RNA sequence: AAAACCUAAAACAACGAAAGCCCUGCCUCUCUUCCAUCCUUGCGGCUCCAAUGACCGCUCCAGUGUGAAUCGGGUUAUCUAUGUGAAA
Numbered sequence: 001a002a003a004a005c006c007u008a009a010a011a012c013a014a015c016g017a018a019a020g021c022c023c024u025g026c027c028u029c030u031c032u033u034c035c036a037u038c039c040u041u042g043c044g045g046c047u048c049c050a051a052u053g054a055c056c057g058c059u060c061c062a063g064u065g066u067g068a069a070u071c072g073g074g075u076u077a078u079c080u081a082u083g084u085g086a087a088a
Base pairs, nucleotide, nucleotide: 035067036066039063040062042058043057044056045055047053